c-di-AMP riboswitch aptamer (ydaO/yuaA leader): a 193-nucleotide RNA from Mycobacterium shinjukuense. Taxonomically the source falls in Mycobacterium (Bacteria, Actinomycetota, Actinomycetes, Mycobacteriaceae). This family represents a conserved RNA structure found upstream of the ydaO and yuaA genes in Bacillus subtilis and related genes in other bacteria.
[Rfam]
RNA sequence: AGGCGAGGGAUUCCGACCCGUGGAUGGAGGCGGGGGACCCGUGGUCCGCCGAGAUCGGAUCGGGGCCGUUCGCGGCUCCUUGGGGUGAAGCCGGCGUCGUCUCAACGAAGAACGACGCGGCCGGGUGACCUCUCUGGCUUAACGCCAACCCGAACCCGACAGCUGACCUCGCAGGCAUGUACCGAGAGGAAUC
Numbered sequence: 001a002g003g004c005g006a007g008g009g010a011u012u013c014c015g016a017c018c019c020g021u022g023g024a025u026g027g028a029g030g031c032g033g034g035g036g037a038c039c040c041g042u043g044g045u046c047c048g049c050c051g052a053g054a055u056c057g058g059a060u061c062g063g064g065g066c067c068g069u070u071c072g073c074g075g076c077u078c079c080u081u082g083g084g085g086u087g088a089a090g091c092c093g094g095c096g097u098c099g100u101c102u103c104a105a106c107g108a109a110g111a112a113c114g115a116c117g118c119g120g121c122c123g124g125g126u127g128a129c130c131u132c133u134c135u136g137g138c139u140u141a142a143c144g145c146c147a148a149c150c151c152g153a154a155c156c157c158g159a160c161a162g163c164u165g166a167c168c169u170c171g172c173a174g175g176c177a178u179g180u181a182c183c184g185a186g187a188g189g190a191a192u193c
Base pairs, nucleotide, nucleotide: 011177013175014174018029030172031171032170033169034168035167040082041081083157084156085155091120092119093118123151124150125149126148